[Rfam]
RNA sequence: UCACGAGGAACAAAGGCUAAGAGCGCCACAUCGUGUGGCAACGCCUUCGUGACCAACGUCCUGUUGG
Numbered sequence: 001u002c003a004c005g006a007g008g009a010a011c012a013a014a015g016g017c018u019a020a021g022a023g024c025g026c027c028a029c030a031u032c033g034u035g036u037g038g039c040a041a042c043g044c045c046u047u048c049g050u051g052a053c054c055a056a057c058g059u060c061c062u063g064u065u066g067g
Stems, first nucleotide, its partner, number of pairs: 011049001013047005025039005053067005
RNA: Bacillaceae-1 RNA